This 106-nucleotide RNA from Lupinus angustifolius belongs to the Rfam family "mir-393 microRNA precursor family". It scores 72 bits against the family's covariance model. Rfam links the family to the GO terms miRNA-mediated post-transcriptional gene silencing and RISC complex. The literature on the family includes a 2012 paper in J Plant Physiol by Kruszka et al., "Role of microRNAs and other sRNAs of plants in their changing environments". Taxonomically the source falls in Lupinus (Eukaryota, Pentapetalae, Fabales, core genistoids).
RNA sequence: AAAGGAGGAAUCCAAAGGGAUAGCAUGAUCCCAAAUAUUUUGUGAAGAUAAAGAGAAAUUUAACACUAAAAUUUAGGAUCAAUGCGAUCCCUUUGGAUGCCUCCUU
Numbered sequence: 001a002a003a004g005g006a007g008g009a010a011u012c013c014a015a016a017g018g019g020a021u022a023g024c025a026u027g028a029u030c031c032c033a034a035a036u037a038u039u040u041u042g043u044g045a046a047g048a049u050a051a052a053g054a055g056a057a058a059u060u061u062a063a064c065a066c067u068a069a070a071a072u073u074u075a076g077g078a079u080c081a082a083u084g085c086g087a088u089c090c091c092u093u094u095g096g097a098u099g100c101c102u103c104c105u106u
Base pairs, nucleotide, nucleotide: 002106003105004104005103006102008100010098011097012096013095014094015093016092017091018090019089020088021087023085024084025083026081027080028079029078030077031076035073